[Rfam]
RNA sequence: GUGAGCGGCCGGGCGGGUCACCGGGACCUCCGGAGGAAGUUCCUCCCCCGCGAGACCGGGGCGUGGCACCGAGAGGUGUAGGGGGAGACCCCUGGCAACGCCGCAGAAACGAGACCCCCCGCAGACGAUGGCCAUGAGACGGCUGCGAAGCCGUCGAGGAGUCUGCGGGUUUGGAUGAAACGGGCGGCCCACGCCGGGAAAGGAGGCUGGGCUGUGAGCACCGUCCCCGAGGCCCAGCCUAGUCCGAUUAGACAGAUCCCGCCUAAACAGAAGGAGGACUACGAGCCGCACAC
Numbered sequence: 001g002u003g004a005g006c007g008g009c010c011g012g013g014c015g016g017g018u019c020a021c022c023g024g025g026a027c028c029u030c031c032g033g034a035g036g037a038a039g040u041u042c043c044u045c046c047c048c049c050g051c052g053a054g055a056c057c058g059g060g061g062c063g064u065g066g067c068a069c070c071g072a073g074a075g076g077u078g079u080a081g082g083g084g085g086a087g088a089c090c091c092c093u094g095g096c097a098a099c100g101c102c103g104c105a106g107a108a109a110c111g112a113g114a115c116c117c118c119c120c121g122c123a124g125a126c127g128a129u130g131g132c133c134a135u136g137a138g139a140c141g142g143c144u145g146c147g148a149a150g151c152c153g154u155c156g157a158g159g160a161g162u163c164u165g166c167g168g169g170u171u172u173g174g175a176u177g178a179a180a181c182g183g184g185c186g187g188c189c190c191a192c193g194c195c196g197g198g199a200a201a202g203g204a205g206g207c208u209g210g211g212c213u214g215u216g217a218g219c220a221c222c223g224u225c226c227c228c229g230a231g232g233c234c235c236a237g238c239c240u241a242g243u244c245c246g247a248u249u250a251g252a253c254a255g256a257u258c259c260c261g262c263c264u265a266a267a268c269a270g271a272a273g274g275a276g277g278a279c280u281a282c283g284a285g286c287c288g289c290a291c292a293c
Stems, first nucleotide, its partner, number of pairs: 001293003005289005010283002012263006021033005038280003042277005047198004052227001054225003061194005066079005080093005094189002099186004115174002118169008139154004202245003209235005